[Rfam]
Rfam assigns this 76-nucleotide sequence from Hydra vulgaris to the family "mir-3003 microRNA precursor family". The family's consensus secondary structure was predicted with RNAalifold.
RNA sequence: CAGUAUUUAUUUCAUUACCAGUUGGCACAUUUAACAAUAAUGUUAAAUGUGCACACUGGUAAUGAUAUAAAUAGCA
Dot-bracket structure: ...(((((((.(((((((((....((((((((((((....))))))))))))....))))))))).)))))))...